[Rfam]
RNA sequence: CGGCUGCGAGGUGAGAAAACUGUCUGCUCACGCGUCUGGUUAUUCAGGUUAAGUAGGAAGCGGUCACGGCCGCGUCUGAAGAGAUUCGGGGAUGGGCAUCCCGGCGCAGUUG
Numbered sequence: 001c002g003g004c005u006g007c008g009a010g011g012u013g014a015g016a017a018a019a020c021u022g023u024c025u026g027c028u029c030a031c032g033c034g035u036c037u038g039g040u041u042a043u044u045c046a047g048g049u050u051a052a053g054u055a056g057g058a059a060g061c062g063g064u065c066a067c068g069g070c071c072g073c074g075u076c077u078g079a080a081g082a083g084a085u086u087c088g089g090g091g092a093u094g095g096g097c098a099u100c101c102c103g104g105c106g107c108a109g110u111u112g
Base pairs, nucleotide, nucleotide: 001112002111003110004109005108006107007106008105011031012030013029014028015027021098022097023096024095025094033081034049035048036047037046038045039044086104087103088102089101090100
This 112-nucleotide RNA belongs to the Rfam family "skipping-rope RNA". Rfam's curators put it in the seed alignment. It is annotated as a small RNA.